[Rfam]
RNA sequence: UGCCUCACAAAAUAGUUGUGAGGGACGAGAAUUGUUGUCAACAGUUCGCCAAUCAGUGCUUUGACACAGGAUUGG
Numbered sequence: 001u002g003c004c005u006c007a008c009a010a011a012a013u014a015g016u017u018g019u020g021a022g023g024g025a026c027g028a029g030a031a032u033u034g035u036u037g038u039c040a041a042c043a044g045u046u047c048g049c050c051a052a053u054c055a056g057u058g059c060u061u062u063g064a065c066a067c068a069g070g071a072u073u074g075g
Stems, first nucleotide, its partner, number of pairs: 003023008053070002056067003

RT-6 RNA: a 75-nucleotide RNA sequence.
It is annotated as a small RNA.